[Rfam]
RNA sequence: CGCAUAUUUCGCCAAGGCGUCGAAGAGACCGGCCCACACAAGAAAUGAUUGCUUUCAUUUAUCUGUAUCGUGAGCAGUAUGGAGUCGAGCCGAUUUGUACUGUAUUGCCGAUCGCUUCA
Numbered sequence: 001c002g003c004a005u006a007u008u009u010c011g012c013c014a015a016g017g018c019g020u021c022g023a024a025g026a027g028a029c030c031g032g033c034c035c036a037c038a039c040a041a042g043a044a045a046u047g048a049u050u051g052c053u054u055u056c057a058u059u060u061a062u063c064u065g066u067a068u069c070g071u072g073a074g075c076a077g078u079a080u081g082g083a084g085u086c087g088a089g090c091c092g093a094u095u096u097g098u099a100c101u102g103u104a105u106u107g108c109c110g111a112u113c114g115c116u117u118c119a
Stems, first nucleotide, its partner, number of pairs: 016034003080119005091114002094111002097108003

Rfam assigns this 119-nucleotide RNA sequence from Spirochaeta africana to the family "ALIL pseudoknot". The family's consensus secondary structure is taken from published work. The match comes from Rfam's covariance-model search (73 bits).